[Rfam]
RNA sequence: UGAGUUGGCGGCUAGGGUUCCGGCGCUUUCGAGCGCGACAGGUCCGAGAGCUGCCGCCGGGUGAGACGCCCGGUGCACGGCGGGAUAAAAACCCGGGAGAC
Numbered sequence: 001u002g003a004g005u006u007g008g009c010g011g012c013u014a015g016g017g018u019u020c021c022g023g024c025g026c027u028u029u030c031g032a033g034c035g036c037g038a039c040a041g042g043u044c045c046g047a048g049a050g051c052u053g054c055c056g057c058c059g060g061g062u063g064a065g066a067c068g069c070c071c072g073g074u075g076c077a078c079g080g081c082g083g084g085a086u087a088a089a090a091a092c093c094c095g096g097g098a099g100a101c
Stems, first nucleotide, its partner, number of pairs: 007055006015045002020042002022039001023036005056074008076096001078099001082094003
Annotation
A member of the RNA family "Guanidine-I riboswitch aptamer" from Solimonas marina, 101 nucleotides long. The pairing is the family consensus, mapped onto this sequence.